[Rfam]
RNA: c-di-GMP-I riboswitch aptamer
RNA sequence: UCCCGAUAAUGGCAAACUUAUCGAAAGAUAAGGGCGCAAAACUACAGGGCCUUCCCGUCGAAGACGAAUGGCAGCCAGUUGUCGAA
Dot-bracket structure: ...........((...((((((....))))))...))..((((...(((((....((((...))))...)))..))))))......
Numbered sequence: 001u002c003c004c005g006a007u008a009a010u011g012g013c014a015a016a017c018u019u020a021u022c023g024a025a026a027g028a029u030a031a032g033g034g035c036g037c038a039a040a041a042c043u044a045c046a047g048g049g050c051c052u053u054c055c056c057g058u059c060g061a062a063g064a065c066g067a068a069u070g071g072c073a074g075c076c077a078g079u080u081g082u083c084g085a086a
Stems, first nucleotide, its partner, number of pairs: 012037002017032006040080004047076002049072003056066004